Record summary: Shown here is a 77-nucleotide RNA from Caenorhabditis briggsae, a member of the family "Small nucleolar RNA sn3071". It is annotated as a C/D-box small nucleolar RNA. The organism belongs to Caenorhabditis, within Eukaryota. The base pairs follow the family's consensus structure, which was predicted with WAR. It is one of the family's seed sequences.
[Rfam]
RNA sequence: GAUCGAUGAUGAGACUUUCACGACGGUCUUCCGAUGAAAUAUCAAAGCUGUGGAUAUCUUUACGUGAAGCUGAGAUC
Numbered sequence: 001g002a003u004c005g006a007u008g009a010u011g012a013g014a015c016u017u018u019c020a021c022g023a024c025g026g027u028c029u030u031c032c033g034a035u036g037a038a039a040u041a042u043c044a045a046a047g048c049u050g051u052g053g054a055u056a057u058c059u060u061u062a063c064g065u066g067a068a069g070c071u072g073a074g075a076u077c
Stems, first nucleotide, its partner, number of pairs: 001077004